[Rfam]
RNA sequence: GUUGGGUAUGGAGACAUCUAUCCCAAGACUCUCCUGGGGAAAAUUGUGGGGGGUCUCUGCUGCAUCGCAGGGGUCCUGGUGAUUGCUCUUCCCAUCCCCAUCAUUGUCAAUAAC
Numbered sequence: 001g002u003u004g005g006g007u008a009u010g011g012a013g014a015c016a017u018c019u020a021u022c023c024c025a026a027g028a029c030u031c032u033c034c035u036g037g038g039g040a041a042a043a044u045u046g047u048g049g050g051g052g053g054u055c056u057c058u059g060c061u062g063c064a065u066c067g068c069a070g071g072g073g074u075c076c077u078g079g080u081g082a083u084u085g086c087u088c089u090u091c092c093c094a095u096c097c098c099c100a101u102c103a104u105u106g107u108c109a110a111u112a113a114c
Stems, first nucleotide, its partner, number of pairs: 001114002004111001008107004013102002020095002037077004049063001051061001

The family of this 114-nucleotide RNA is "Potassium channel RNA editing signal".
From the family's description: This family represents a group of sequences related to the human potassium channel Kv1.1 hairpin element which directs the efficient modification of an adenosine to inosine by an adenosine deaminase acting on RNA (ADAR). The ADAR modification causes an isoleucine/valine recoding event which lies in the ion-conducting pore of the potassium channel. It is thought that this editing event targets the process of fast inactivation and allows a more rapid recovery from inactivation at negative potentials.